[Rfam]
RNA sequence: GAAAUCUAUUGCUCUUUUAGUAAUUUUCUAGCAGGAUUUCUGUUAAAGAAAUCCCAC
Numbered sequence: 001g002a003a004a005u006c007u008a009u010u011g012c013u014c015u016u017u018u019a020g021u022a023a024u025u026u027u028c029u030a031g032c033a034g035g036a037u038u039u040c041u042g043u044u045a046a047a048g049a050a051a052u053c054c055c056a057c
Stems, first nucleotide, its partner, number of pairs: 034054008
Rfam assigns this 57-nucleotide RNA from Perca flavescens to the family "U7 small nuclear RNA".
The organism belongs to Perca, within Eukaryota.
It scores 44 bits against the family's covariance model.
About the family: Animal histone pre-mRNAs are spliced by a different mechanism than nuclear pre-mRNAs and self-splicing introns. This processing involves the U7 snRNP, which contains only one RNA species: U7. The 5' end of U7 RNA is thought to base-pair to a conserved spacer element downstream of the cleavage site in histone pre-mRNA. This family contains a number of annotated U7 pseudogenes.
Pairs were carried over by alignment from the consensus structure, which was predicted with PFOLD.